[Rfam]
RNA sequence: CUUGAUCGACCCCAGCCACAGGGGUUCUUCCCGGUCCUGGCCGUAGGUGGCGAGCAGCGCCUGGGCCUC
Numbered sequence: 001c002u003u004g005a006u007c008g009a010c011c012c013c014a015g016c017c018a019c020a021g022g023g024g025u026u027c028u029u030c031c032c033g034g035u036c037c038u039g040g041c042c043g044u045a046g047g048u049g050g051c052g053a054g055c056a057g058c059g060c061c062u063g064g065g066c067c068u069c
Base pairs, nucleotide, nucleotide: 014026015025016024017023028065029064030063032059033058037054038053041050042049043048
Annotation
Shown here is a 69-nucleotide sequence from Dactylosporangium sucinum, a member of the family "ASpks TB sRNA". Rfam classes the family as an antisense RNA. The source organism's lineage runs through Bacteria, Actinomycetota, Actinomycetes, Micromonosporales and Dactylosporangium.